[Rfam]
Nucleotides: 506
Stems, first nucleotide, its partner, number of pairs: 004020005022496010033385009042343001048341003052338003057084003062081002066077004091296003101220007110213002115209007123157004132147006162188008171180002194201002222268003229259003234256008271293004275286004298319006321332004349375001351374003357370005388407008412432007439485006452479004461468002
Number, partner (000 for none) and nucleotide at each position: 001000a002000c003000u004020c005019c006018g007017g008016u009000u010000g011000a012000u013000c014000c015000u016008g017007c018006c019005g020004g021000a022496g023495g024494c025493c026492a027491c028490u029489g030488c031487u032000a033385u034384c035383g036382g037381g038380c039379u040378c041377c042343g043000a044000c045000u046000a047000a048341g049340c050339c051000a052338u053337g054336c055000g056000a057084g058083u059082u060000u061000a062081g063080g064000g065000g066077c067076u068075c069074c070000u071000u072000c073000g074069g075068g076067g077066g078000c079000a080063c081062c082059g083058g084057c085000g086000g087000a088000c089000g090000g091296c092295u093294c094000a095000g096000u097000a098000a099000c100000a101220c102219g103218u104217g105216g106215a107214c108000a109000a110213c111212c112000u113000a114000c115209c116208c117207u118206c119205g120204g121203g122000u123157g124156g125155g126154g127000g128000a129000u130000a131000a132147c133146c134145u135144c136143g137142g138000g139000a140000a141000a142137c143136u144135g145134a146133g147132g148000c149000u150000a151000a152000u153000a154126c155125c156124c157123c158000a159000u160000a161000g162188g163187g164186g165185a166184a167183a168182g169181g170000u171180a172179c173000u174000g175000g176000a177000a178000g179172g180171u181169c182168c183167u184166u185165u186164c187163c188162c189000u190000g191000a192000a193000a194201g195200c196000u197000c198000c199000g200195g201194c202000g203121c204120c205119c206118g207117a208116g209115g210000a211000u212111g213110g214107g215106u216105c217104u218103g219102c220101g221000g222268c223267c224266u225000a226000u227000c228000a229259g230258g231257u232000a233000g234256u235255u236254g237253g238252u239251g240250g241249u242000g243000u244000a245000a246000a247000g248000g249241a250240c251239c252238a253237c254236c255235a256234a257231g258230c259229c260000u261000g262000c263000g264000a265000c266224g267223g268222g269000u270000a271293c272292g273291g274290g275286c276285c277284c278283u279000g280000a281000g282000a283278g284277g285276g286275g287000u288000a289000g290274c291273c292272c293271g294093g295092a296091g297000a298319u299318g300317g301316a302315c303314u304000c305000u306000g307000a308000g309000a310000c311000a312000c313000g314303a315302g316301u317300c318299c319298a320000g321332g322331c323330c324329c325000u326000a327000c328000g329324g330323g331322g332321c333000g334000c335000a336054g337053c338052a339050g340049g341048c342000g343042c344000g345000a346000a347000a348000c349375c350000u351374u352373c353372g354000c355000a356000a357370u358369g359368c360367g361366c362000g363000a364000a365000a366361g367360c368359g369358c370357g371000a372353c373352g374351a375349g376000g377041g378040g379039a380038g381037c382036c383035c384034g385033a386000g387000u388407g389406c390405c391404c392403u393402u394401c395400c396000u397000u398000u399000u400395g401394g402393g403392a404391g405390g406389g407388c408000u409000u410000u411000u412432c413431c414430g415429g416428a417427g418426u419000c420000u421000a422000a423000a424000a425000a426418g427417c428416u429415c430414c431413g432412g433000g434000a435000a436000u437000a438000a439485g440484g441483g442482c443481u444480g445000g446000g447000c448000a449000a450000g451000a452479c453478g454477g455476g456000u457000g458000c459000c460000a461468g462467c463000c464000g465000c466000c467462g468461c469000g470000g471000u472000a473000a474000u475000a476455c477454c478453c479452g480444c481443a482442g483441c484440u485439c486000g487031a488030g489029u490028g491027g492026u493025g494024g495023c496022c497000a498000c499000u500000a501000u502000u503000a504000u505000u506000g
This 506-nucleotide part of an RNA from Candidatus Aciduliprofundum boonei belongs to the Rfam family "Archaeal small subunit ribosomal RNA".
For this family Rfam cites "Crystal structure of the ribosome at 5.5 A resolution" (Yusupov et al., Science, 2001).
The family's consensus secondary structure is taken from published work.